[Rfam]
RNA sequence: UGUCUCCUCCACCCUCCUUUGGUGGAUUCAGCCCCCGGAUCGCAAGGUCCGGGGGCUUUUUU
Numbered sequence: 001u002g003u004c005u006c007c008u009c010c011a012c013c014c015u016c017c018u019u020u021g022g023u024g025g026a027u028u029c030a031g032c033c034c035c036c037g038g039a040u041c042g043c044a045a046g047g048u049c050c051g052g053g054g055g056c057u058u059u060u061u062u
Stems, first nucleotide, its partner, number of pairs: 008026006032055008